[Rfam]
RNA sequence: AUCGACAAGAGCAAACUUGGCGAAAGCCAAGGACGCAAAGCUAUGGGUCUUCCAGAGUUCUUCUGAUGACUGCCAAGCCACCGAAA
Numbered sequence: 001a002u003c004g005a006c007a008a009g010a011g012c013a014a015a016c017u018u019g020g021c022g023a024a025a026g027c028c029a030a031g032g033a034c035g036c037a038a039a040g041c042u043a044u045g046g047g048u049c050u051u052c053c054a055g056a057g058u059u060c061u062u063c064u065g066a067u068g069a070c071u072g073c074c075a076a077g078c079c080a081c082c083g084a085a086a
Stems, first nucleotide, its partner, number of pairs: 003083002011036002016031006034072001040078003044075003047070003
About this RNA: The record is an 86-nucleotide RNA from Desulfitobacterium metallireducens, which matches "c-di-GMP-I-GGC riboswitch aptamer" in Rfam. It scores 64 bits against the family's covariance model. The family's consensus secondary structure is taken from published work. Its family is annotated with cyclic-di-GMP binding in the Gene Ontology.